Description: A member of the RNA family "tRNA" from Nakamurella alba, 74 nucleotides long. On this family, see Lowe and Eddy, Nucleic Acids Res 1997: "tRNAscan-SE: a program for improved detection of transfer RNA genes in genomic sequence". It is annotated as a transfer RNA. The base pairs follow the family's consensus structure, which is taken from published work.
RNA sequence: GCCCCCGUAUCCCAAUUGGCAGAGGAAGCGGAUUCAAAACCCGCGUAGUGUCAGUUCGAGUCUGACCGGGGGCA
Numbered sequence: 001g002c003c004c005c006c007g008u009a010u011c012c013c014a015a016u017u018g019g020c021a022g023a024g025g026a027a028g029c030g031g032a033u034u035c036a037a038a039a040c041c042c043g044c045g046u047a048g049u050g051u052c053a054g055u056u057c058g059a060g061u062c063u064g065a066c067c068g069g070g071g072g073c074a
Base pairs, nucleotide, nucleotide: 001073002072003071004070005069006068007067010026011025012024028044029043030042031041050066051065052064053063054062
NCBI's taxonomy places the organism under Bacteria, Actinomycetes, Nakamurellales, Nakamurellaceae, Nakamurella.